[Rfam]
RNA sequence: GAUAGGCCCCUGUCGCUACCGUGAUUGGACUCUGACGCUGAGUCAACUAGCCUUGAUGGCGUGGUUCUUCUGCUAGGGAACCCGGGCGGUCCGAGCCACCAGGGGGGAGGCUCGGACCGCUUUUC
Number, nucleotide and partner (000 for none) at each position: 001g014002a013003u012004a011005g010006g000007c000008c000009c000010c005011u004012g003013u002014c001015g051016c050017u049018a048019c000020c000021g032022u000023g030024a000025u000026u000027g000028g000029a000030c023031u000032c021033u045034g044035a043036c042037g000038c000039u000040g000041a000042g036043u035044c034045a033046a000047c000048u018049a017050g016051c015052c000053u000054u000055g000056a000057u000058g074059g073060c072061g071062u000063g070064g069065u000066u000067c000068u000069u064070c063071u061072g060073c059074u058075a000076g083077g082078g000079a000080a000081c000082c077083c076084g000085g121086g120087c119088g118089g117090u116091c115092c114093g113094a112095g111096c110097c109098a000099c106100c000101a000102g000103g000104g000105g000106g099107g000108a000109g097110g096111c095112u094113c093114g092115g091116a090117c089118c088119g087120c086121u085122u000123u000124u000125c000
RNA: Streptomyces RNA 3920
Organism: Streptomyces lavendulae